[Rfam]
Shown here is a 74-nucleotide sequence from Herbaspirillum sp. meg3, a member of the family "Fluoride riboswitch aptamer (crcB RNA motif)". Pairs were carried over by alignment from the consensus structure, which is taken from published work. A reference for the family is Baker et al. (2012), "Widespread genetic switches and toxicity resistance proteins for fluoride", Science. The organism belongs to Herbaspirillum, within Bacteria. Its family is annotated with response to fluoride and positive regulation of gene expression in the Gene Ontology. The match comes from Rfam's covariance-model search (48 bits).
RNA sequence: UCCCAAACAGGAGAUGGCAUUCCUCCUUGAACCGCCACCGGCAUCACGCCGGAGCUGAUGAUGCCUACAGAUAC
Number, nucleotide and partner (000 for none) at each position: 001u000002c000003c000004c000005a000006a000007a000008c000009a000010g026011g025012a024013g023014a000015u000016g065017g064018c063019a062020u061021u060022c000023c013024u012025c011026c010027u000028u000029g000030a000031a000032c000033c000034g055035c054036c000037a000038c000039c000040g000041g000042c000043a000044u000045c000046a000047c000048g000049c000050c000051g000052g000053a000054g035055c034056u000057g000058a000059u000060g021061a020062u019063g018064c017065c016066u000067a000068c000069a000070g000071a000072u000073a000074c000